[Rfam]
Rfam assigns this 150-nucleotide RNA from Loxodonta africana to the family "U12 minor spliceosomal RNA". NCBI's taxonomy places the organism under Eukaryota, Teleostomi, Mammalia, Eutheria, Loxodonta. By type it is a spliceosomal small nuclear RNA. Its Rfam clan is "U2 clan".
RNA sequence: AAGUCUUCAAUUUAUGAGUAAAGAAAAUACCAAUUCAGGGUGAUGCCCAAAUCCUUGCUGCUAACGUGAGAUGAAUUUUUGAGCAGGUAAAGGUUGCUUCUAAAGUGACCCUCCUACUUUGUGGGAAGCCUAGGAUUUGCAGUAUGUCCA
Number, nucleotide and partner (000 for none) at each position: 001a000002a000003g000004u023005c000006u021007u020008c000009a000010a000011u000012u000013u000014a000015u000016g000017a000018g000019u000020a007021a006022a000023g004024a000025a000026a000027a000028u000029a000030c000031c000032a000033a052034u051035u050036c000037a000038g047039g046040g000041u000042g000043a000044u000045g000046c039047c038048c000049a000050a035051a034052u033053c000054c070055u069056u068057g067058c066059u000060g000061c000062u000063a000064a000065c000066g058067u057068g056069a055070g054071a000072u000073g000074a000075a000076u000077u000078u000079u000080u000081g000082a000083g000084c000085a000086g148087g147088u146089a000090a000091a145092g000093g143094u142095u141096g140097c139098u000099u000100c134101u133102a000103a131104a000105g129106u128107g000108a000109c125110c124111c123112u000113c121114c000115u000116a000117c000118u000119u000120u000121g113122u000123g111124g110125g109126a000127a000128g106129c105130c000131u103132a000133g101134g100135a000136u000137u000138u000139g097140c096141a095142g094143u093144a000145u091146g088147u087148c086149c000150a000